[Rfam]
RNA sequence: UGUCGGCGCUGAAUUAGAGAUCGGCGUUUGAUGUAUGACUAACCCUACUAUUGAGGAUUUUAAUAUGUCUCUAAGCACAGAAAAAAAAGCAGCUAUCGUUGCUGAAUUUGGUCGUGAUGCA
Numbered sequence: 001u002g003u004c005g006g007c008g009c010u011g012a013a014u015u016a017g018a019g020a021u022c023g024g025c026g027u028u029u030g031a032u033g034u035a036u037g038a039c040u041a042a043c044c045c046u047a048c049u050a051u052u053g054a055g056g057a058u059u060u061u062a063a064u065a066u067g068u069c070u071c072u073a074a075g076c077a078c079a080g081a082a083a084a085a086a087a088a089g090c091a092g093c094u095a096u097c098g099u100u101g102c103u104g105a106a107u108u109u110g111g112u113c114g115u116g117a118u119g120c121a
Stems, first nucleotide, its partner, number of pairs: 007026006051075002054072003

The family of this 121-nucleotide RNA from Avibacterium volantium is "Ribosomal S15 leader".
The source organism's lineage runs through Bacteria, Pseudomonadati, Gammaproteobacteria, Pasteurellaceae and Avibacterium.
The base pairs follow the family's consensus structure, which is taken from published work.
It scores 97 bits against the family's covariance model.
The family is grouped with related families in Rfam's "Ribosomal Protein S15 Leader clan".
About the family: The E. coli Ribosomal S15 gene 5' UTR can form two alternative structures. One that is a series of three hairpins, The other includes a pseudoknot. This structure causes translational regulation of the S15 protein. The alignment of this family contains only the final two hairpins which are conserved in other species, and also includes the complete region that forms the alternate structures.
The literature on the family includes a 1996 paper in Biochimie by Benard et al., "Pseudoknot and translational control in the expression of the S15 ribosomal protein".